[Rfam]
RNA: Bacterial RNase P class A
Organism: Maribacter sp. 4U21
RNA sequence: GUAGCAGGCCAACCUAUCGCGGUUUAAUUUAUUAAAACGAGGAAAGUCCGGACACCAUAGUGCAGUAUAGCGGGUAACGCCCGUCCGCCGAGAGGUGAGGACAAGUGCAACAGAAAGCAAGUACAGUUCGGCUGUAGUGAAACCAGGUAAACUCUAUACGGUGAAACGUCAUGUAAACCGACGUUUGAGGGCGGCACGCCCAAGUCGAAGGGUAGGCGGUUAGAUCCUUUGGGUAACUAAGGGCCUAGAUAAAUGAUAGGUAAUUUAGAACGCAGUUCUAGAUACAGAAUCCGGCUUAUGGCCUGCUUUUUCA
Numbered sequence: 001g002u003a004g005c006a007g008g009c010c011a012a013c014c015u016a017u018c019g020c021g022g023u024u025u026a027a028u029u030u031a032u033u034a035a036a037a038c039g040a041g042g043a044a045a046g047u048c049c050g051g052a053c054a055c056c057a058u059a060g061u062g063c064a065g066u067a068u069a070g071c072g073g074g075u076a077a078c079g080c081c082c083g084u085c086c087g088c089c090g091a092g093a094g095g096u097g098a099g100g101a102c103a104a105g106u107g108c109a110a111c112a113g114a115a116a117g118c119a120a121g122u123a124c125a126g127u128u129c130g131g132c133u134g135u136a137g138u139g140a141a142a143c144c145a146g147g148u149a150a151a152c153u154c155u156a157u158a159c160g161g162u163g164a165a166a167c168g169u170c171a172u173g174u175a176a177a178c179c180g181a182c183g184u185u186u187g188a189g190g191g192c193g194g195c196a197c198g199c200c201c202a203a204g205u206c207g208a209a210g211g212g213u214a215g216g217c218g219g220u221u222a223g224a225u226c227c228u229u230u231g232g233g234u235a236a237c238u239a240a241g242g243g244c245c246u247a248g249a250u251a252a253a254u255g256a257u258a259g260g261u262a263a264u265u266u267a268g269a270a271c272g273c274a275g276u277u278c279u280a281g282a283u284a285c286a287g288a289a290u291c292c293g294g295c296u297u298a299u300g301g302c303c304u305g306c307u308u309u310u311u312c313a
Stems, first nucleotide, its partner, number of pairs: 001309001003307009012261007020039002023036005044297003048294005053163004060197004065159005070084005085099001086097004100154002105152002107148002122136006167218004179207004189201004226243007